A member of the RNA family "Bacterial antisense RNA HPnc0260" from Candidatus Williamhamiltonella defendens, 174 nucleotides long. It scores 72 bits against the family's covariance model.

RNA sequence: ACUGUAAAAUUUUUUUAUAAAAAUCAACAUAUUGAAUACAUAAACUGAUGGCCGUAUCUCGUUCAAAAAAUGGGCGUGGAGGGUAAUCUGUGAAAGAAGAUAAAGAAAAAAAUGAAGAGAAAAAAAGAGACCAGCUGGUGCGUCCGAGUGGACUCGAACCACCGACCCCCACCA
Dot-bracket structure: ...((....((((......))))...))...........................................................................................................(((.(....((.((((.......))))))..).)))...
Numbered sequence: 001a002c003u004g005u006a007a008a009a010u011u012u013u014u015u016u017a018u019a020a021a022a023a024u025c026a027a028c029a030u031a032u033u034g035a036a037u038a039c040a041u042a043a044a045c046u047g048a049u050g051g052c053c054g055u056a057u058c059u060c061g062u063u064c065a066a067a068a069a070a071u072g073g074g075c076g077u078g079g080a081g082g083g084u085a086a087u088c089u090g091u092g093a094a095a096g097a098a099g100a101u102a103a104a105g106a107a108a109a110a111a112a113u114g115a116a117g118a119g120a121a122a123a124a125a126a127g128a129g130a131c132c133a134g135c136u137g138g139u140g141c142g143u144c145c146g147a148g149u150g151g152a153c154u155c156g157a158a159c160c161a162c163c164g165a166c167c168c169c170c171a172c173c174a
Stems, first nucleotide, its partner, number of pairs: 004028002010023004136171003140167001145164002148162004